RNA sequence: CGAAAUUUAAUUUUAACACACACACAUAUCGACACAUACACUUGGGUGCAAGCUCGGAACAAAUUAUCGGGUAACCGAAUUUUCGAACUUGUUGGUGUUAUGGGAUAUGUGGAGGCCUAAC
Numbered sequence: 001c002g003a004a005a006u007u008u009a010a011u012u013u014u015a016a017c018a019c020a021c022a023c024a025c026a027u028a029u030c031g032a033c034a035c036a037u038a039c040a041c042u043u044g045g046g047u048g049c050a051a052g053c054u055c056g057g058a059a060c061a062a063a064u065u066a067u068c069g070g071g072u073a074a075c076c077g078a079a080u081u082u083u084c085g086a087a088c089u090u091g092u093u094g095g096u097g098u099u100a101u102g103g104g105a106u107a108u109g110u111g112g113a114g115g116c117c118u119a120a121c
Base pairs, nucleotide, nucleotide: 023111024110025109026108027107028106029105030104035102036101037100038099040096041095042094048092049091050090051089052088
RNA: t44 RNA
Organism: Pseudoalteromonas rubra